[Rfam]
RNA sequence: UGGCGCUCAACGUGGCCUGGAUACUGGGGACAACGUGAGGGACAUGACGAAAGAAGAAGGGGUGUGCACCCGAUCAAACAAUAGUUUGGAGACAUCGCGGUAGCCUGCUGUGACCGAGCUGACAUGUAAGUUGGUCGUCAAUCAUGGGGCAAGAAUUAAGUCAGCAUCAAAAGUAUGUGAUGCAGUUAAAAGAAGCGUUACAGGCAGGAGGAGUAAAGGUUACAACUAAAGAUUUAUUUCAUUUCUUUGAUUUCGUACAGGACGUUUGUCCUU
Dot-bracket structure: .....(((...(((.......)))..)))....(((.......))).....................................((((.....(..(((((.......)))))...)....)).))......(.((..(((....))).)).)....(((((.................................)).))).......((((((...(((((.........))))).......))))))..........(((((....))))).

Rfam assigns this 273-nucleotide RNA sequence from Nannospalax galili to the family "Mason-Pfizer monkey virus packaging signal". It scores 141 bits against the family's covariance model. Lineage of the source: Eukaryota > Vertebrata > Mammalia > Myomorpha > Nannospalax. This family represents a group of sequences that are related to the Mason-Pfizer monkey virus (MPMV) packaging signal. The packaging signal is located in the 5' UTR and is required for specific RNA encapsidation.